[Rfam]
RNA sequence: ACCUGUUGCGGGUGGCAGCGCUGCGCUCGCGGCACCAGACACACACCACAGCCUCGGGAAGAACGGGGCACUUUAGGGCGUU
Numbered sequence: 001a002c003c004u005g006u007u008g009c010g011g012g013u014g015g016c017a018g019c020g021c022u023g024c025g026c027u028c029g030c031g032g033c034a035c036c037a038g039a040c041a042c043a044c045a046c047c048a049c050a051g052c053c054u055c056g057g058g059a060a061g062a063a064c065g066g067g068g069c070a071c072u073u074u075a076g077g078g079c080g081u082u
Stems, first nucleotide, its partner, number of pairs: 004034011016023002051069006